Shown here is a 219-nucleotide RNA sequence from Candidatus Midichloria mitochondrii, a member of the family "permuted transfer-messenger RNA". Rfam classes the family as a non-coding RNA gene. Gene Ontology term of the family: RNA catabolic process. The family's consensus secondary structure is taken from published work. From the family's description: Bacterial tmRNA, also known as 10Sa RNA or SsrA, is named for its dual tRNA and mRNA-like properties. Its role is to liberate the mRNA from a stalled ribosome. To accomplish this part of the tmRNA is used as a reading frame that ends in a translation stop signal. The broken mRNA is replaced in the ribosome by the tmRNA and translation of the tmRNA leads to addition of a proteolysis tag to the incomplete protein enabling recognition by a protease. Recently a number of permuted tmRNA genes have been found encoded in two parts. tmRNAs have been identified in eubacteria and some chloroplasts but are absent from archaeal and eukaryote nuclear genomes.
[Rfam]
RNA sequence: GGUGAUAAACGUAACUUAUAAUGGGUAUUUUGGACUCGGGGGCGGUACCCGGCACCUCCACCUGCGAAGUUUAUGGGGGGUGAGCUAGCUUCGACAGAUAUUAAAAAAAGUUACUUUUACUCGGUAAGAUACCGCCGUAAUGGAUCAAAAAAAGUAAAUGCAAACAAUAAGUUUGUACCUGCUAAUAGCGACUUUGUGCCAGCUCUUCAAGCAGCAUAA
Numbered sequence: 001g002g003u004g005a006u007a008a009a010c011g012u013a014a015c016u017u018a019u020a021a022u023g024g025g026u027a028u029u030u031u032g033g034a035c036u037c038g039g040g041g042g043c044g045g046u047a048c049c050c051g052g053c054a055c056c057u058c059c060a061c062c063u064g065c066g067a068a069g070u071u072u073a074u075g076g077g078g079g080g081u082g083a084g085c086u087a088g089c090u091u092c093g094a095c096a097g098a099u100a101u102u103a104a105a106a107a108a109a110g111u112u113a114c115u116u117u118u119a120c121u122c123g124g125u126a127a128g129a130u131a132c133c134g135c136c137g138u139a140a141u142g143g144a145u146c147a148a149a150a151a152a153a154g155u156a157a158a159u160g161c162a163a164a165c166a167a168u169a170a171g172u173u174u175g176u177a178c179c180u181g182c183u184a185a186u187a188g189c190g191a192c193u194u195u196g197u198g199c200c201a202g203c204u205c206u207u208c209a210a211g212c213a214g215c216a217u218a219a
Stems, first nucleotide, its partner, number of pairs: 001121005014111004026100003030097003036052005053082007122137004